[Rfam]
RNA sequence: GGUGCGGCCCGGGCCCCUCUGGCGACAUGGAUCUCCCCCUUGAUCCUGUCGCGAUGUCGGACCGCAUCG
Numbered sequence: 001g002g003u004g005c006g007g008c009c010c011g012g013g014c015c016c017c018u019c020u021g022g023c024g025a026c027a028u029g030g031a032u033c034u035c036c037c038c039c040u041u042g043a044u045c046c047u048g049u050c051g052c053g054a055u056g057u058c059g060g061a062c063c064g065c066a067u068c069g
Stems, first nucleotide, its partner, number of pairs: 006063002009060004022052006029045001
Rfam assigns this 69-nucleotide RNA sequence from Sphingobium sp. YR768 to the family "terC RNA". The family's consensus secondary structure is taken from published work. By type it is a cis-regulatory element.